RNA sequence: UUUCCCUGUCGUGACUGGCGCAACCUGCAGCGACCUGCCGUGAGCAGGCGUGAGGGCUUGGUGGACCACCACCGGGGAGCGACGCUUUCUUCAGACUUCGGGUCGUUCGCCUGGGCCCCGGGU
Numbered sequence: 001u002u003u004c005c006c007u008g009u010c011g012u013g014a015c016u017g018g019c020g021c022a023a024c025c026u027g028c029a030g031c032g033a034c035c036u037g038c039c040g041u042g043a044g045c046a047g048g049c050g051u052g053a054g055g056g057c058u059u060g061g062u063g064g065a066c067c068a069c070c071a072c073c074g075g076g077g078a079g080c081g082a083c084g085c086u087u088u089c090u091u092c093a094g095a096c097u098u099c100g101g102g103u104c105g106u107u108c109g110c111c112u113g114g115g116c117c118c119c120g121g122g123u
Base pairs, nucleotide, nucleotide: 007084008083009082010081011080012079015076016075017111018110019109020108061072062071063070064069100118101117102116103115104114

ZMP/ZTP riboswitch aptamer (pfl RNA motif): a 123-nucleotide RNA sequence from Sanguibacter antarcticus. Taxonomically the source falls in Sanguibacter (Bacteria, Actinomycetota, Actinomycetes, Micrococcales). It scores 49 bits against the family's covariance model.